HNH endonuclease-associated RNA and ORF (HEARO) RNA: a 210-nucleotide RNA from Hydrocoleum sp. CS-953. NCBI's taxonomy places the organism under Bacteria, Cyanobacteriota, Oscillatoriales, Microcoleaceae, Hydrocoleum. The family's RNA type in Rfam is non-coding RNA gene.
RNA sequence: GACUAACCACAAAUCUAAUCAAAGCGCUCAAGUCGCUUAAAUGGUUAGUCCAGCCCACUUUUUUUAAAGUAAACGUUAUUUAAGUCAUAACACCUUGGGAUGCACGGCCAGUUCCAAGCUCUGUUGUUCGGCAUUAAACAGGUAAAGAGAUUUGAAAAACCAGUGUGUCGAGCUGAAAAAGCCAAAAUAACUGGGCGAGGCCAACUUUAC
Number, nucleotide and partner (000 for none) at each position: 001g050002a049003c048004u047005a046006a045007c044008c043009a000010c000011a000012a000013a000014u000015c000016u000017a000018a000019u000020c000021a000022a000023a000024g000025c000026g000027c000028u000029c000030a000031a000032g000033u000034c000035g000036c000037u000038u000039a000040a000041a000042u000043g008044g007045u006046u005047a004048g003049u002050c001051c000052a000053g196054c195055c194056c193057a192058c000059u071060u000061u069062u068063u000064u000065u000066a000067a000068a062069g061070u000071a059072a000073a000074c000075g191076u190077u189078a188079u187080u186081u185082a000083a000084g182085u181086c000087a000088u000089a000090a124091c123092a000093c000094c118095u117096u116097g115098g114099g113100a112101u111102g206103c000104a000105c000106g202107g201108c200109c199110a000111g101112u100113u099114c098115c097116a096117a095118g094119c000120u000121c000122u000123g091124u090125u000126g173127u172128u171129c170130g169131g168132c167133a166134u165135u000136a000137a000138a164139c163140a000141g161142g160143u159144a000145a000146a000147g000148a000149g000150a000151u000152u000153u000154g000155a000156a000157a000158a000159a143160c142161c141162a000163g139164u138165g134166u133167g132168u131169c130170g129171a128172g127173c126174u000175g000176a000177a000178a000179a000180a000181g085182c084183c000184a000185a081186a080187a079188u078189a077190a076191c075192u057193g056194g055195g054196c053197g000198a000199g109200g108201c107202c106203a000204a000205c000206u102207u000208u000209a000210c000